[Rfam]
RNA sequence: CAACCAUGGUCGCCGCGACGCGAAGCCGGAACCGGGGACCCUCGCAGUCCCUUGGGGUGAAUCGGUGCUUCGGCACCGUAGGGCGCCUUCUUCCGCCCGAACCCGUCAGCUAACCCGGUAGGCGGCCGAGGAAGGAGAC
Numbered sequence: 001c002a003a004c005c006a007u008g009g010u011c012g013c014c015g016c017g018a019c020g021c022g023a024a025g026c027c028g029g030a031a032c033c034g035g036g037g038a039c040c041c042u043c044g045c046a047g048u049c050c051c052u053u054g055g056g057g058u059g060a061a062u063c064g065g066u067g068c069u070u071c072g073g074c075a076c077c078g079u080a081g082g083g084c085g086c087c088u089u090c091u092u093c094c095g096c097c098c099g100a101a102c103c104c105g106u107c108a109g110c111u112a113a114c115c116c117g118g119u120a121g122g123c124g125g126c127c128g129a130g131g132a133a134g135g136a137g138a139c
Stems, first nucleotide, its partner, number of pairs: 011124004019029001031119006041054001055104003063078004081098004

c-di-AMP riboswitch aptamer (ydaO/yuaA leader): a 139-nucleotide RNA sequence from Embleya scabrispora. The organism belongs to Embleya, within Bacteria. The match comes from Rfam's covariance-model search (85 bits). The pairing is the family consensus, mapped onto this sequence.